[Rfam]
RNA sequence: UGCUCUGCUGUUCCUAGGGUGUUUCUCUCAUCUCUGGUCUAUAAUGGGUUAAAUAGUAGAGAUGAGGGCAACACCUUAGGAACAGCGGAGGA
Numbered sequence: 001u002g003c004u005c006u007g008c009u010g011u012u013c014c015u016a017g018g019g020u021g022u023u024u025c026u027c028u029c030a031u032c033u034c035u036g037g038u039c040u041a042u043a044a045u046g047g048g049u050u051a052a053a054u055a056g057u058a059g060a061g062a063u064g065a066g067g068g069c070a071a072c073a074c075c076u077u078a079g080g081a082a083c084a085g086c087g088g089a090g091g092a
Stems, first nucleotide, its partner, number of pairs: 003090021025068012039056004
Rfam assigns this 92-nucleotide sequence from Gorilla gorilla to the family "mir-609 microRNA precursor family". A reference for the family is Brameier (2010), "Genome-wide comparative analysis of microRNAs in three non-human primates", BMC Res Notes. Its family is annotated with miRNA-mediated post-transcriptional gene silencing and RISC complex in the Gene Ontology. Pairs were carried over by alignment from the consensus structure, which was predicted with RNAalifold.